[Rfam]
RNA sequence: AAAGCAGGUUGCACUUACAGUGCUUCAUUUUCUGGAAGUACUGCCAUUAUCCUGACAAAAGAAAAGUCAUGGUCAUUGUUUUUGAUUUUUGCCUUUAUGAGGAUAAAAUCAUGACAGUUUGACAUGGACAAUU
Numbered sequence: 001a002a003a004g005c006a007g008g009u010u011g012c013a014c015u016u017a018c019a020g021u022g023c024u025u026c027a028u029u030u031u032c033u034g035g036a037a038g039u040a041c042u043g044c045c046a047u048u049a050u051c052c053u054g055a056c057a058a059a060a061g062a063a064a065a066g067u068c069a070u071g072g073u074c075a076u077u078g079u080u081u082u083u084g085a086u087u088u089u090u091g092c093c094u095u096u097a098u099g100a101g102g103a104u105a106a107a108a109u110c111a112u113g114a115c116a117g118u119u120u121g122a123c124a125u126g127g128a129c130a131a132u133u
Base pairs, nucleotide, nucleotide: 005054006053007052008051018043019042020041021040022039023038024037025036026035067127068126069125070124071123073121075119077117083111084110085109086108087107088106089105091104093102094101095100
RNA: Small nucleolar RNA SNORA69
Organism: Castor canadensis